[Rfam]
RNA sequence: AAAGGGGGGGGGGGGGCAAAGAAGGAGCGUUCUCGUCGCGGUCCCUGUCAGGUUUACACCUGCAAAUCCUUCU
Numbered sequence: 001a002a003a004g005g006g007g008g009g010g011g012g013g014g015g016g017c018a019a020a021g022a023a024g025g026a027g028c029g030u031u032c033u034c035g036u037c038g039c040g041g042u043c044c045c046u047g048u049c050a051g052g053u054u055u056a057c058a059c060c061u062g063c064a065a066a067u068c069c070u071u072c073u
Base pairs, nucleotide, nucleotide: 012045013044014043015042017040020073021072022071023070024069025068026067027039028038029037049062050061051060052059053058
A member of the RNA family "Mammalian CPEB3 ribozyme" from Patiria miniata, 73 nucleotides long. The organism belongs to Patiria, within Eukaryota.